[Rfam]
RNA sequence: UUACUCGGUUUCUUUCAUCACGCACAAGUCUUUCGCCUUUUACUAAACACUUCCGUGGAGAGGAAUACCAAUGAGUUUAAAUUCCAUUUUGGCAGGCUUUGCCUUCUGGCAGAGCC
Numbered sequence: 001u002u003a004c005u006c007g008g009u010u011u012c013u014u015u016c017a018u019c020a021c022g023c024a025c026a027a028g029u030c031u032u033u034c035g036c037c038u039u040u041u042a043c044u045a046a047a048c049a050c051u052u053c054c055g056u057g058g059a060g061a062g063g064a065a066u067a068c069c070a071a072u073g074a075g076u077u078u079a080a081a082u083u084c085c086a087u088u089u090u091g092g093c094a095g096g097c098u099u100u101g102c103c104u105u106c107u108g109g110c111a112g113a114g115c116c
Stems, first nucleotide, its partner, number of pairs: 003076004008066006014059004026052004031047003096115006
The family of this 116-nucleotide RNA from Channa argus is "U5 spliceosomal RNA". The family has 180 seed sequences and 28,527 matches in Rfam 15.1. NCBI's taxonomy places the organism under Eukaryota, Teleostomi, Neoteleostei, Ctenosquamata, Channa. By type it is a spliceosomal small nuclear RNA. The match comes from Rfam's covariance-model search (72 bits).